[Rfam]
RNA sequence: GGAAUAUAAGAAACCGUCUUUUAAAUUUUAACUAAAAAAAUUAAAAACCGAUUCUUAAAUAUUUAUUUAAGAGGCGGUUCUUAACUUUUUUAAUUAAAAUUUAAAAUACGGUUUUUUAUAUUCC
Numbered sequence: 001g002g003a004a005u006a007u008a009a010g011a012a013a014c015c016g017u018c019u020u021u022u023a024a025a026u027u028u029u030a031a032c033u034a035a036a037a038a039a040a041u042u043a044a045a046a047a048c049c050g051a052u053u054c055u056u057a058a059a060u061a062u063u064u065a066u067u068u069a070a071g072a073g074g075c076g077g078u079u080c081u082u083a084a085c086u087u088u089u090u091u092a093a094u095u096a097a098a099a100u101u102u103a104a105a106a107u108a109c110g111g112u113u114u115u116u117u118a119u120a121u122u123c124c
Stems, first nucleotide, its partner, number of pairs: 001124017019106013033092007041084004046079002
Shown here is a 124-nucleotide sequence from Brassica oleracea, a member of the family "MIR9563 microRNA precursor family". Rfam 15.1 lists 5,832 matches to the family in 9 species. A search with the family's covariance model found it, with a score of 95 bits.